[Rfam]
Nucleotides: 052
Stems, first nucleotide, its partner, number of pairs: 002013003024044008
Number, partner (000 for none) and nucleotide at each position: 001000u002013g003012g004011u005000a006000g007000a008000u009000g010000c011004a012003c013002c014000c015000u016000g017000a018000u019000u020000g021000u022000c023000g024044c025043c026042c027041u028040c029039a030038g031037c032000c033000a034000c035000a036000a037031g038030c039029u040028g041027g042026g043025g044024g045000c046000u047000u048000u049000u050000u051000g052000u
The family of this 52-nucleotide RNA from Leptolyngbya sp. Cla-17 is "Nitrogen stress-induced RNA 1". The family has 17 seed sequences and 962 matches in Rfam 15.1. The source organism's lineage runs through Bacteria, Cyanobacteriota, Cyanophyceae, Leptolyngbyaceae and Leptolyngbya. By type it is a small RNA. Pairs were carried over by alignment from the consensus structure. It scores 48 bits against the family's covariance model.